This 343-nucleotide sequence from Clostridiaceae bacterium OM08-6BH belongs to the Rfam family "Bacterial RNase P class A".
RNA sequence: CAAGUAAGACAGACAAUCGCGGCUGAUUUUAUCAGGUGAGGAAAGUCCGGGCUUCACAGGGCAGGAUGCCGGAUAACGUCCGGUGGAGGUGACUCCAAGGCCAGUGCAACAGAGAUAUACCGCCAGCACCGCAAGGAGCUGGUAAGGGUGGAAAGGCAGUGUAAGAGACUACCGCCCGACUGGUAACAGGCGGGGCACAUGUAAACCCCAUCCGAAGCAAGACCAAGCAGAAGCAUAUGGUGGCCCGCCAGCUUCAGGUAGGUUGCUUGAACGUGCCGGUAACGGUACGUCUAGAUAGAUGAUUGUCCAACGACAUAACCCGGCUUAUCGUUUUGCUUGCUGU
Numbered sequence: 001c002a003a004g005u006a007a008g009a010c011a012g013a014c015a016a017u018c019g020c021g022g023c024u025g026a027u028u029u030u031a032u033c034a035g036g037u038g039a040g041g042a043a044a045g046u047c048c049g050g051g052c053u054u055c056a057c058a059g060g061g062c063a064g065g066a067u068g069c070c071g072g073a074u075a076a077c078g079u080c081c082g083g084u085g086g087a088g089g090u091g092a093c094u095c096c097a098a099g100g101c102c103a104g105u106g107c108a109a110c111a112g113a114g115a116u117a118u119a120c121c122g123c124c125a126g127c128a129c130c131g132c133a134a135g136g137a138g139c140u141g142g143u144a145a146g147g148g149u150g151g152a153a154a155g156g157c158a159g160u161g162u163a164a165g166a167g168a169c170u171a172c173c174g175c176c177c178g179a180c181u182g183g184u185a186a187c188a189g190g191c192g193g194g195g196c197a198c199a200u201g202u203a204a205a206c207c208c209c210a211u212c213c214g215a216a217g218c219a220a221g222a223c224c225a226a227g228c229a230g231a232a233g234c235a236u237a238u239g240g241u242g243g244c245c246c247g248c249c250a251g252c253u254u255c256a257g258g259u260a261g262g263u264u265g266c267u268u269g270a271a272c273g274u275g276c277c278g279g280u281a282a283c284g285g286u287a288c289g290u291c292u293a294g295a296u297a298g299a300u301g302a303u304u305g306u307c308c309a310a311c312g313a314c315a316u317a318a319c320c321c322g323g324c325u326u327a328u329c330g331u332u333u334u335g336c337u338u339g340c341u342g343u
Stems, first nucleotide, its partner, number of pairs: 001339010011328001012307007020038002023035005043326003047323005052217004059246004064213005069083005084098001085096004099208002104206002106202003120147002122143006129136002155173002158170003174196001175194004180189003221264004230255005239249003271290008

Ribonuclease P (RNase P) is a ubiquitous endoribonuclease, found in archaea, bacteria and eukarya as well as chloroplasts and mitochondria. Its best characterised activity is the generation of mature 5'-ends of tRNAs by cleaving the 5'-leader elements of precursor-tRNAs.